Record summary:
Lysine riboswitch aptamer: a 173-nucleotide sequence from Romboutsia lituseburensis. A search with the family's covariance model found it, with a score of 113 bits. Rfam links the family to the GO term lysine biosynthetic process. Taxonomically the source falls in Romboutsia lituseburensis (Bacteria, Bacillati, Peptostreptococcales, Romboutsia).
RNA sequence: CCUAAUGGUAGAGGUCGCAUUGUUAAUUAGUAAUUUUGUGGAGGUAAGCACGUAGAAGCAAGAUAAAAGGUAACUGUGCCGAAAUAUAUAAGUAAUGCUUUAAUCUUAUAUGUUGGGGUCAUGUAAAAUAUAUAUGACACUGUCACAUGAAUAUGUGGAGUACUAUCUUUAGA
Numbered sequence: 001c002c003u004a005a006u007g008g009u010a011g012a013g014g015u016c017g018c019a020u021u022g023u024u025a026a027u028u029a030g031u032a033a034u035u036u037u038g039u040g041g042a043g044g045u046a047a048g049c050a051c052g053u054a055g056a057a058g059c060a061a062g063a064u065a066a067a068a069g070g071u072a073a074c075u076g077u078g079c080c081g082a083a084a085u086a087u088a089u090a091a092g093u094a095a096u097g098c099u100u101u102a103a104u105c106u107u108a109u110a111u112g113u114u115g116g117g118g119u120c121a122u123g124u125a126a127a128a129u130a131u132a133u134a135u136g137a138c139a140c141u142g143u144c145a146c147a148u149g150a151a152u153a154u155g156u157g158g159a160g161u162a163c164u165a166u167c168u169u170u171a172g173a
Stems, first nucleotide, its partner, number of pairs: 007167005017079004022074004033064007083114010115141002118138008143158006